[Rfam]
RNA sequence: GGUAUUGUUUGCCCCACAUAAUGAGCCCCGGAAACUUAUAUUGUGCAACAAACAAACAGAUA
Dot-bracket structure: .....((((((....(((((.((((.........))))))).))........))))))....
This 62-nucleotide sequence from Carnobacterium antarcticum belongs to the Rfam family "Ribosomal protein L13 leader". For this family Rfam cites "Diverse mechanisms for regulating ribosomal protein synthesis in Escherichia coli" (Zengel and Lindahl, Prog Nucleic Acid Res Mol Biol, 1994). The family's consensus secondary structure was predicted with CMfinder. Gene Ontology term of the family: regulation of gene expression. The source organism's lineage runs through Bacteria, Bacillota, Bacilli, Lactobacillales and Carnobacterium.